The record is a 182-nucleotide RNA sequence from Photobacterium halotolerans, which matches "Lysine riboswitch aptamer" in Rfam. A reference for the family is Sudarsan et al. (2003), "An mRNA structure in bacteria that controls gene expression by binding lysine", Genes Dev. Taxonomically the source falls in Photobacterium (Bacteria, Pseudomonadati, Pseudomonadota, Vibrionales).

RNA sequence: GAAAACGGAAGAGGCGCGUUAUCCAGGUAUCUAUGCGGCGGGGCCCCACCCCAAAGCACCAUAGAGAGGGGGAGCAACGCCGAGAUACGGUAAGACAGGGGGCUUGCCGUAUCGGCUUUGAAGGUUGAAUCCUUCUGGCUGUCACCUGCAUCAUCCAGUGCAGGUGGAGAGCUUCUGGUAGC
Number, nucleotide and partner (000 for none) at each position: 001g000002a000003a000004a000005a000006c177007g176008g175009a174010a173011g172012a000013g000014g000015c000016g080017c079018g078019u077020u076021a000022u074023c000024c072025a000026g000027g000028u000029a000030u065031c064032u063033a062034u061035g060036c000037g000038g000039c000040g000041g000042g000043g000044c000045c000046c000047c000048a000049c000050c000051c000052c000053a000054a000055a000056g000057c000058a000059c000060c035061a034062u033063a032064g031065a030066g000067a000068g000069g000070g000071g000072g024073a000074g022075c000076a020077a019078c018079g017080c016081c000082g000083a000084g113085a112086u111087a110088c109089g108090g107091u106092a105093a104094g103095a000096c000097a000098g000099g000100g000101g000102g000103c094104u093105u092106g091107c090108c089109g088110u087111a086112u085113c084114g140115g139116c138117u137118u000119u000120g135121a134122a133123g132124g131125u000126u000127g000128a000129a000130u000131c124132c123133u122134u121135c120136u000137g117138g116139c115140u114141g000142u167143c166144a165145c164146c163147u162148g161149c160150a159151u000152c000153a000154u000155c000156c000157a000158g000159u150160g149161c148162a147163g146164g145165u144166g143167g142168a000169g000170a000171g000172c011173u010174u009175c008176u007177g006178g000179u000180a000181g000182c000